This 87-nucleotide RNA from Marispirochaeta aestuarii belongs to the Rfam family "Selenocysteine transfer RNA". Rfam links the family to the GO term triplet codon-amino acid adaptor activity. Clan: tRNA clan.
[Rfam]
RNA sequence: GGAAGUUGAUAAGAUCUGGUGGUCUUCGCGGUCUUCAAAACCGUUGGGCGUGUAGAAGCGUCGGGAGGUUCGAUUCCUCCCUCUUCC
Dot-bracket structure: (((((..(..((((((....)))))).(((((.......)))))..(((((......)))))..((((.......)))))..)))))